Rfam assigns this 82-nucleotide RNA sequence from Caldisalinibacter kiritimatiensis to the family "Clostridiales-2 RNA". A search with the family's covariance model found it, with a score of 80 bits. Taxonomically the source falls in Caldisalinibacter (Bacteria, Bacillati, Tissierellia, Tissierellales). It is annotated as a small RNA.
[Rfam]
RNA sequence: AAAAAAUAGGGAUUGUAGGGGACAGGGUCCCCUGCCGUUUUAAGAGGGGUGCUCAGGAUGUUAAAUAUCCGCCGAAGGGGAA
Numbered sequence: 001a002a003a004a005a006a007u008a009g010g011g012a013u014u015g016u017a018g019g020g021g022a023c024a025g026g027g028u029c030c031c032c033u034g035c036c037g038u039u040u041u042a043a044g045a046g047g048g049g050u051g052c053u054c055a056g057g058a059u060g061u062u063a064a065a066u067a068u069c070c071g072c073c074g075a076a077g078g079g080g081a082a
Stems, first nucleotide, its partner, number of pairs: 015035008056070005